Group II catalytic intron D1-D4-6: a 222-nucleotide RNA from Lachnospiraceae bacterium 3_1_57FAA_CT1. The organism belongs to Lachnospiraceae, within Bacteria. Rfam describes the family as follows. Group II introns are found in rRNA, tRNA and mRNA of organelles in fungi, plants and protists, and also in mRNA in bacteria. Pairs were carried over by alignment from the consensus structure.
RNA sequence: CAAAUCCUGUCUGUUUAAGGUCUAACCAACCAGCAGUAGCGAGUCUUGCGUGGUAAUCAGUAAUGAUUGUUGCGAAGCGUAGACAGCAAGCAAGUAGGGUUGCAAUGCGAUUGAGCCUCGAAAAGUUGAAUUUCAGAGGGCUGACGUCUUAACUGGUUCGGAAAGCAACAUCGGCUAACUCGCUAUGGUGAGAGUUCGUCGGCACUGCGGGGUCAAAGGGCC
Numbered sequence: 001c002a003a004a005u006c007c008u009g010u011c012u013g014u015u016u017a018a019g020g021u022c023u024a025a026c027c028a029a030c031c032a033g034c035a036g037u038a039g040c041g042a043g044u045c046u047u048g049c050g051u052g053g054u055a056a057u058c059a060g061u062a063a064u065g066a067u068u069g070u071u072g073c074g075a076a077g078c079g080u081a082g083a084c085a086g087c088a089a090g091c092a093a094g095u096a097g098g099g100u101u102g103c104a105a106u107g108c109g110a111u112u113g114a115g116c117c118u119c120g121a122a123a124a125g126u127u128g129a130a131u132u133u134c135a136g137a138g139g140g141c142u143g144a145c146g147u148c149u150u151a152a153c154u155g156g157u158u159c160g161g162a163a164a165g166c167a168a169c170a171u172c173g174g175c176u177a178a179c180u181c182g183c184u185a186u187g188g189u190g191a192g193a194g195u196u197c198g199u200c201g202g203c204a205c206u207g208c209g210g211g212g213u214c215a216a217a218g219g220g221c222c
Base pairs, nucleotide, nucleotide: 012035013034014033019031020030021029023191025189026188037089039087040086043084044083045082046081047079048078049074050073051072052071053070054069055068056067057066058065059064112216113214115213116212117211118210119209120208134207135206136205139203140166141165142164145160146159171202172201173200174199175198177196178195179194180193181192